[Rfam]
Nucleotides: 157
Base pairs, nucleotide, nucleotide: 011038012037013036014035016033019032020031021030022029023027044066045065046064047063048062049061052088053087054086055085067084068083069082070081071080072079073078125156132151133150134149135148136147137146138145
Number, partner (000 for none) and nucleotide at each position: 001000a002000u003000c004000g005000u006000c007000g008000u009000g010000c011038c012037a013036u014035g015000u016033u017000c018000c019032g020031c021030u022029g023027c024000u025000u026000c027023g028000c029022c030021a031020g032019c033016g034000a035014c036013a037012u038011g039000c040000c041000c042000a043000g044066g045065u046064a047063g048062c049061c050000u051000c052088g053087a054086c055085c056000u057000u058000c059000a060000a061049g062048g063047c064046u065045a066044c067084g068083a069082u070081g071080c072079g073078a074000u075000c076000c077000g078073u079072c080071g081070c082069a083068u084067u085055g086054g087053u088052u089000g090000u091000u092000u093000u094000u095000g096000u097000a098000c099000c100000u101000g102000a103000u104000g105000c106000c107000a108000u109000c110000g111000c112000g113000c114000g115000u116000c117000u118000u119000u120000u121000a122000c123000c124000u125156c126000a127000a128000c129000c130000c131000u132151c133150a134149a135148g136147g137146g138145a139000c140000a141000u142000c143000c144000c145138u146137c147136c148135c149134u150133u151132g152000c153000a154000g155000g156125g157000c
Notes:
The record is a 157-nucleotide sequence, which matches "radC RNA" in Rfam. It scores 86 bits against the family's covariance model.